[Rfam]
RNA sequence: GCAAGAUGACUCUCAGUGGUCUGGGGUGCAGGCUUCAAACCUGUAGCUGUCUAGUGACAGAGUGGUUCACUUCCACUUUUCAGGC
Numbered sequence: 001g002c003a004a005g006a007u008g009a010c011u012c013u014c015a016g017u018g019g020u021c022u023g024g025g026g027u028g029c030a031g032g033c034u035u036c037a038a039a040c041c042u043g044u045a046g047c048u049g050u051c052u053a054g055u056g057a058c059a060g061a062g063u064g065g066u067u068c069a070c071u072u073c074c075a076c077u078u079u080u081c082a083g084g085c
Stems, first nucleotide, its partner, number of pairs: 001085002005081002008078002011026006027045006047060005062076004
Dot-bracket structure: ((..((.((.((((((....))))))((((((.......)))))).(((((....))))).((((.......)))))).))..))

This 85-nucleotide RNA from Opisthocomus hoazin belongs to the Rfam family "Selenocysteine transfer RNA". Rfam links the family to the GO term triplet codon-amino acid adaptor activity. The organism belongs to Opisthocomus, within Eukaryota. The match comes from Rfam's covariance-model search (58 bits).